[Rfam]
RNA sequence: CCCUUGGACUAUUAUAUAAAACUAAAGUAGAGUGUCUUUGUAUAUUUGAAAUAGGAUAGGUUGAAUAGGGAA
Numbered sequence: 001c002c003c004u005u006g007g008a009c010u011a012u013u014a015u016a017u018a019a020a021a022c023u024a025a026a027g028u029a030g031a032g033u034g035u036c037u038u039u040g041u042a043u044a045u046u047u048g049a050a051a052u053a054g055g056a057u058a059g060g061u062u063g064a065a066u067a068g069g070g071a072a
Stems, first nucleotide, its partner, number of pairs: 001070004009059005022054003030047003035044001
This 72-nucleotide RNA sequence from Clostridium cylindrosporum belongs to the Rfam family "RAGATH-18 RNA". The family's consensus secondary structure is taken from published work. The organism belongs to Clostridium cylindrosporum, within Bacteria. Rfam classes the family as a small RNA. From the family's description: Actinobacteria, Firmicutes, Fusobacteria, Thermotogae (1 example).